[Rfam]
RNA sequence: CAGACACUCUAGCACCGAUAAAAUGGGUGUUACAUUUUAUUAUACAACACCCAUUUUAUCGGUGCUAGAGUGUUUG
Numbered sequence: 001c002a003g004a005c006a007c008u009c010u011a012g013c014a015c016c017g018a019u020a021a022a023a024u025g026g027g028u029g030u031u032a033c034a035u036u037u038u039a040u041u042a043u044a045c046a047a048c049a050c051c052c053a054u055u056u057u058a059u060c061g062g063u064g065c066u067a068g069a070g071u072g073u074u075u076g
Base pairs, nucleotide, nucleotide: 001076002075003074005072006071007070010069011066012065013064014063015062016061017060018059020057021056022055023054024053025052026051027050